RNA sequence: UUAAAGAUACUCGCGCAUUGAACGCCCACAAAGCAUUGUGCGCCGCACCCAUCAGCAUGGGCCGGGGUGAAACUCCCGUGG
Number, nucleotide and partner (000 for none) at each position: 001u000002u000003a000004a000005a000006g000007a000008u000009a000010c000011u000012c078013g043014c042015g041016c040017a039018u038019u000020g000021a000022a000023c000024g000025c000026c000027c000028a000029c000030a000031a000032a000033g000034c000035a000036u000037u000038g018039u017040g016041c015042g014043c013044c064045g063046c000047a000048c060049c059050c000051a000052u000053c000054a000055g000056c000057a000058u000059g049060g048061g000062c000063c045064g044065g077066g076067g075068u000069g000070a000071a000072a000073c000074u000075c067076c066077c065078g012079u000080g000081g000
A member of the RNA family "pemK RNA" from Vescimonas fastidiosa, 81 nucleotides long. The match comes from Rfam's covariance-model search (37 bits). It is annotated as a cis-regulatory element.